Shown here is a 107-nucleotide RNA sequence from Rhodococcus (subgen. Prescottella) equi, a member of the family "Glycine riboswitch aptamer". The match comes from Rfam's covariance-model search (54 bits). The source organism's lineage runs through Bacteria, Actinomycetota, Nocardiaceae, Rhodococcus and Rhodococcus (subgen. Prescottella) equi.

[Rfam]
RNA sequence: CGCCGUCGCGCGGGAGAGUUCCGGGCAGAUCUGUAUGUGCUGCCCGGGCGCCGAAGGAGCAGCACCUCCCCGUCAAUCUCUCAGGCACCCAGGACCGUGCGGGCUCC
Numbered sequence: 001c002g003c004c005g006u007c008g009c010g011c012g013g014g015a016g017a018g019u020u021c022c023g024g025g026c027a028g029a030u031c032u033g034u035a036u037g038u039g040c041u042g043c044c045c046g047g048g049c050g051c052c053g054a055a056g057g058a059g060c061a062g063c064a065c066c067u068c069c070c071c072g073u074c075a076a077u078c079u080c081u082c083a084g085g086c087a088c089c090c091a092g093g094a095c096c097g098u099g100c101g102g103g104c105u106c107c
Base pairs, nucleotide, nucleotide: 006102007101008100009099010098011097012096013095020048021047022046023045024044025043026042027041028040050086051085052084053082054081057080058079059078064073065072